[Rfam]
RNA sequence: ACUGCUGAGCCAUCUCUCCAGCCCCAUAAAAUAUUAUUUUUAAAAAAGAUGGGAGGGGGUUGGAGAGAUGGCUCAGUGGU
Numbered sequence: 001a002c003u004g005c006u007g008a009g010c011c012a013u014c015u016c017u018c019c020a021g022c023c024c025c026a027u028a029a030a031a032u033a034u035u036a037u038u039u040u041u042a043a044a045a046a047a048g049a050u051g052g053g054a055g056g057g058g059g060u061u062g063g064a065g066a067g068a069u070g071g072c073u074c075a076g077u078g079g080u
Stems, first nucleotide, its partner, number of pairs: 002079023

A member of the RNA family "mir-3473 microRNA precursor family" from Nannospalax galili, 80 nucleotides long. Pairs were carried over by alignment from the consensus structure, which was predicted with RNAalifold. NCBI's taxonomy places the organism under Eukaryota, Gnathostomata, Theria, Muroidea, Nannospalax. The family has 5 seed sequences and 1,094 matches in Rfam 15.1. Gene Ontology terms of the family: miRNA-mediated post-transcriptional gene silencing, cellular response to mechanical stimulus and RISC complex.